[Rfam]
RNA sequence: CAGCGCUCAGGUAGCUGUAAAGCCUGUGGCGGUAGCGUA
Dot-bracket structure: .......(((((.........))))).............
RNA: JUMPstart RNA
Organism: Moellerella wisconsensis